[Rfam]
RNA: SAH (S-adenosyl-L-homocysteine) riboswitch aptamer
Organism: Luteimonas cucumeris
RNA sequence: UCCAUCGAGGGGCGCUGCAAUCCCGCAACGGGAACAGGCUCGAUGGACGGCUACCGUAACAACGGCGCCCGUUAAUG
Numbered sequence: 001u002c003c004a005u006c007g008a009g010g011g012g013c014g015c016u017g018c019a020a021u022c023c024c025g026c027a028a029c030g031g032g033a034a035c036a037g038g039c040u041c042g043a044u045g046g047a048c049g050g051c052u053a054c055c056g057u058a059a060c061a062a063c064g065g066c067g068c069c070c071g072u073u074a075a076u077g
Base pairs, nucleotide, nucleotide: 002046003045004044005043006042007041008040021033022032023031024030025029
Dot-bracket structure: .(((((((............(((((...)))))......)))))))...............................